Overview
This 52-nucleotide sequence from Elainella sp. C42_A2020_010 belongs to the Rfam family "Nitrogen stress-induced RNA 1". On this family, see Ionescu et al., J Mol Biol 2010: "Heterocyst-specific transcription of NsiR1, a non-coding RNA encoded in a tandem array of direct repeats in cyanobacteria". It scores 55 bits against the family's covariance model.

RNA sequence: UGGUAGAUGCACCCUGAUUCAUACCCCGGAGGAAACUCUGGGGUUUUUCUUU
Numbered sequence: 001u002g003g004u005a006g007a008u009g010c011a012c013c014c015u016g017a018u019u020c021a022u023a024c025c026c027c028g029g030a031g032g033a034a035a036c037u038c039u040g041g042g043g044u045u046u047u048u049c050u051u052u
Stems, first nucleotide, its partner, number of pairs: 002013003023044009
Dot-bracket structure: .(((......))).........(((((((((....)))))))))........